The record is a 125-nucleotide RNA from Budvicia aquatica, which matches "Histidine operon leader" in Rfam.
Rfam's curators write: At least 6 amino acid operons are known to be regulated by attenuation.
For this family Rfam cites "Attenuation in amino acid biosynthetic operons" (Kolter and Yanofsky, Annu Rev Genet, 1982).
RNA sequence: CCAUCAUCACCAUCACCCUGAUUAGUCUUUGGGCGUUUGGUGCUGGAAGACGAUCAACGAAUCUUCCAGUGGCGACAGAAAGUUAAAGAGAGCCCUCGGAAGAUUCCUUCCGAGGGCUUUUUUAA
Dot-bracket structure: .......(((.(.(..(((((.......))))).).)..)))((((((((...........)))))))).................((((((((((((((((....))))))))))))))))...